RNA sequence: CGGUGAUGUCUCCUAGCCUAUAUCAAAGGAGGCACUCGAUCAUGCUGUGGGUUGAAAAACCUUAGACGCGAGUCGUCGAGAGUGUGGUGUGAGGUGGGGUUAGAUGCCCC
Numbered sequence: 001c002g003g004u005g006a007u008g009u010c011u012c013c014u015a016g017c018c019u020a021u022a023u024c025a026a027a028g029g030a031g032g033c034a035c036u037c038g039a040u041c042a043u044g045c046u047g048u049g050g051g052u053u054g055a056a057a058a059a060c061c062u063u064a065g066a067c068g069c070g071a072g073u074c075g076u077c078g079a080g081a082g083u084g085u086g087g088u089g090u091g092a093g094g095u096g097g098g099g100u101u102a103g104a105u106g107c108c109c110c
Base pairs, nucleotide, nucleotide: 002018003017004016007034008033009032010031011030012029013028035093036092037091038090039088040087041086042085043084044083045082046081049062050061051060052059053058065077066076067075068074096110097109098108099107100106
This 110-nucleotide RNA from Bacillus yapensis belongs to the Rfam family "epsC RNA". The family has 30 seed sequences and 450 matches in Rfam 15.1. The match comes from Rfam's covariance-model search (112 bits). The family's RNA type in Rfam is cis-regulatory element. Taxonomically the source falls in Bacillus (Bacteria, Bacillati, Bacillota, Caryophanales).